[Rfam]
RNA sequence: UAGGGAAGUCAAUGAUGGUUACGCCCGAAAUGUCUGAACCUGUCUGAAGCAUCUAGGUGAUGCAGUAUUUGUGGUUCUGAGACUUCUCUAAGA
Numbered sequence: 001u002a003g004g005g006a007a008g009u010c011a012a013u014g015a016u017g018g019u020u021a022c023g024c025c026c027g028a029a030a031u032g033u034c035u036g037a038a039c040c041u042g043u044c045u046g047a048a049g050c051a052u053c054u055a056g057g058u059g060a061u062g063c064a065g066u067a068u069u070u071g072u073g074g075u076u077c078u079g080a081g082a083c084u085u086c087u088c089u090a091a092g093a
Stems, first nucleotide, its partner, number of pairs: 004087007